A member of the RNA family "mir-282 microRNA precursor family" from Drosophila albomicans, 96 nucleotides long. For this family Rfam cites "Direct sequencing and expression analysis of a large number of miRNAs in Aedes aegypti and a multi-species survey of novel mosquito miRNAs" (Li et al., BMC Genomics, 2009). Rfam links the family to the GO terms RISC complex and miRNA-mediated post-transcriptional gene silencing.
RNA sequence: UUUCCUUAUAAAUCUAGCCUCUACUAGGCUUUGUCUGUGCAUUGUUGCAUUUUAUUAUCAGACAUAGCCUAUGAGAGGUUAGGUGUAGCGAGGAGG
Numbered sequence: 001u002u003u004c005c006u007u008a009u010a011a012a013u014c015u016a017g018c019c020u021c022u023a024c025u026a027g028g029c030u031u032u033g034u035c036u037g038u039g040c041a042u043u044g045u046u047g048c049a050u051u052u053u054a055u056u057a058u059c060a061g062a063c064a065u066a067g068c069c070u071a072u073g074a075g076a077g078g079u080u081a082g083g084u085g086u087a088g089c090g091a092g093g094a095g096g
Stems, first nucleotide, its partner, number of pairs: 012084009027069004032064005